[Rfam]
Annotation: Shown here is a 122-nucleotide RNA from Halonatronomonas betaini, a member of the family "Molybdenum/Tungsten riboswitch aptamer (Moco RNA motif)".

RNA sequence: UAUAGGUAACUCCUCCGAGCAGUAGUUCCUAAAGAUAAAAAUCCAGGGAGCUGCUGCCGAUGGGUCAGCAGGAGAAAUCCACUGGCCUCCCACUCUUGGAAAGGAGCAAAUAUAUAAAGGAG
Numbered sequence: 001u002a003u004a005g006g007u008a009a010c011u012c013c014u015c016c017g018a019g020c021a022g023u024a025g026u027u028c029c030u031a032a033a034g035a036u037a038a039a040a041a042u043c044c045a046g047g048g049a050g051c052u053g054c055u056g057c058c059g060a061u062g063g064g065u066c067a068g069c070a071g072g073a074g075a076a077a078u079c080c081a082c083u084g085g086c087c088u089c090c091c092a093c094u095c096u097u098g099g100a101a102a103g104g105a106g107c108a109a110a111u112a113u114a115u116a117a118a119g120g121a122g
Stems, first nucleotide, its partner, number of pairs: 003116002006113001011108001013106004019057011034043003062088007071080003089099002

The organism belongs to Halonatronomonas, within Bacteria.